RNA sequence: CUGGUCUGAGGAGACGCGAGGAUCGUUCUUGCCGCCGCUUGGGCCAGUGCACCGAGCCGGGCCCUGACAAGCAGCCCGCGGAGGGACUGCUGCGAACCGAACGUGGACCUCUGCGAUUGCCGCCGCCGCCUCCCGCCUCUAGACUCGGGAGUGGAUUCCCGCCUCGCACCCCAGCCCCUGGACCUGCCUCUUGUCUCUCCGCGUGUGGAGGGAGCCAGCGCUUAGGCCGGAGCGAGCCUGGGGGCCGCCGGCCGCGAAGGCGUCGCGGGGACCCAUUCGCCAUG
Numbered sequence: 001c002u003g004g005u006c007u008g009a010g011g012a013g014a015c016g017c018g019a020g021g022a023u024c025g026u027u028c029u030u031g032c033c034g035c036c037g038c039u040u041g042g043g044c045c046a047g048u049g050c051a052c053c054g055a056g057c058c059g060g061g062c063c064c065u066g067a068c069a070a071g072c073a074g075c076c077c078g079c080g081g082a083g084g085g086a087c088u089g090c091u092g093c094g095a096a097c098c099g100a101a102c103g104u105g106g107a108c109c110u111c112u113g114c115g116a117u118u119g120c121c122g123c124c125g126c127c128g129c130c131u132c133c134c135g136c137c138u139c140u141a142g143a144c145u146c147g148g149g150a151g152u153g154g155a156u157u158c159c160c161g162c163c164u165c166g167c168a169c170c171c172c173a174g175c176c177c178c179u180g181g182a183c184c185u186g187c188c189u190c191u192u193g194u195c196u197c198u199c200c201g202c203g204u205g206u207g208g209a210g211g212g213a214g215c216c217a218g219c220g221c222u223u224a225g226g227c228c229g230g231a232g233c234g235a236g237c238c239u240g241g242g243g244g245c246c247g248c249c250g251g252c253c254g255c256g257a258a259g260g261c262g263u264c265g266c267g268g269g270g271a272c273c274c275a276u277u278c279g280c281c282a283u284g
Stems, first nucleotide, its partner, number of pairs: 001013002016032006034062003083157002087154001130151005184218003188214004196209003228251001230249001232248003
RNA: HIF-1 alpha IRES
Organism: Chrysochloris asiatica